RNA sequence: UCGCGUGCUCUGGGGUCGGUGAAAAUCCGAGCCGGCGGUGAAUGAUCCGAAGCGUCCUCGCUUCGCUCACAAGUCCGCGACCCGAUCACAUCCAGUGAUCGGUUGACCAGGUGGAACUCCUGGACCGACGGUCAAAGUCCGGAUGGGAAGUGCACGCAA
Numbered sequence: 001u002c003g004c005g006u007g008c009u010c011u012g013g014g015g016u017c018g019g020u021g022a023a024a025a026u027c028c029g030a031g032c033c034g035g036c037g038g039u040g041a042a043u044g045a046u047c048c049g050a051a052g053c054g055u056c057c058u059c060g061c062u063u064c065g066c067u068c069a070c071a072a073g074u075c076c077g078c079g080a081c082c083c084g085a086u087c088a089c090a091u092c093c094a095g096u097g098a099u100c101g102g103u104u105g106a107c108c109a110g111g112u113g114g115a116a117c118u119c120c121u122g123g124a125c126c127g128a129c130g131g132u133c134a135a136a137g138u139c140c141g142g143a144u145g146g147g148a149a150g151u152g153c154a155c156g157c158a159a
Base pairs, nucleotide, nucleotide: 003157004156005155006154007153008152010150017029018028019027031138032137033127034126035078036077037076038075073125074124082102083101107123108122109121110120111119129141130140131139
The record is a 159-nucleotide RNA sequence from Nocardioides sp. Root190, which matches "FMN riboswitch aptamer (RFN element)" in Rfam. Rfam links the family to the GO term FMN binding. The organism belongs to Nocardioides, within Bacteria.